[Rfam]
RNA: mir-375 microRNA precursor family
RNA sequence: CGCAACGCCGAGCCCGACGCACAAUGCCUGCUCUGUCACGGCGCGUUUUGUUCGUUCGGCUCGCGUUGCGC
Numbered sequence: 001c002g003c004a005a006c007g008c009c010g011a012g013c014c015c016g017a018c019g020c021a022c023a024a025u026g027c028c029u030g031c032u033c034u035g036u037c038a039c040g041g042c043g044c045g046u047u048u049u050g051u052u053c054g055u056u057c058g059g060c061u062c063g064c065g066u067u068g069c070g071c
Base pairs, nucleotide, nucleotide: 001070002069003068005066006065007064009063010062011061012060013059014058018054019053021051022050023049024048026046027045